[Rfam]
RNA sequence: GUGAGCUCUCGGCUUAGAGAACUGAAUUCCAAGGGUUGUGGGUCUUGAGCUCAACCCGUGGAUCUCAGUUCUCCAGCCUGGUGGCUGCCC
Numbered sequence: 001g002u003g004a005g006c007u008c009u010c011g012g013c014u015u016a017g018a019g020a021a022c023u024g025a026a027u028u029c030c031a032a033g034g035g036u037u038g039u040g041g042g043u044c045u046u047g048a049g050c051u052c053a054a055c056c057c058g059u060g061g062a063u064c065u066c067a068g069u070u071c072u073c074c075a076g077c078c079u080g081g082u083g084g085c086u087g088c089c090c
Base pairs, nucleotide, nucleotide: 008081009080011078012077013076018072019071020070021069022068023067024066025065033057034056035055036054